Shown here is a 90-nucleotide RNA from Acanthosepion pharaonis, a member of the family "Small nucleolar RNA SNORD70".
By type it is a C/D-box small nucleolar RNA.
Rfam's curators write: snoRNA HBII-234 belongs to the C/D family of snoRNAs.
For this family Rfam cites "RNomics: an experimental approach that identifies 201 candidates for novel, small, non-messenger RNAs in mouse" (Huttenhofer et al., EMBO J, 2001).
RNA sequence: GAUCUUUUCACCAAUGAUGAUAUUUUAGUCGGAUGUUGUCAAAUGAAGAAACCAAACACAAUUCGUCACUACCUCUGAGGUGAAAAGGUU
Numbered sequence: 001g002a003u004c005u006u007u008u009c010a011c012c013a014a015u016g017a018u019g020a021u022a023u024u025u026u027a028g029u030c031g032g033a034u035g036u037u038g039u040c041a042a043a044u045g046a047a048g049a050a051a052c053c054a055a056a057c058a059c060a061a062u063u064c065g066u067c068a069c070u071a072c073c074u075c076u077g078a079g080g081u082g083a084a085a086a087g088g089u090u
Base pairs, nucleotide, nucleotide: 001090002089003088004087005086006085007084008083009082010081011080012079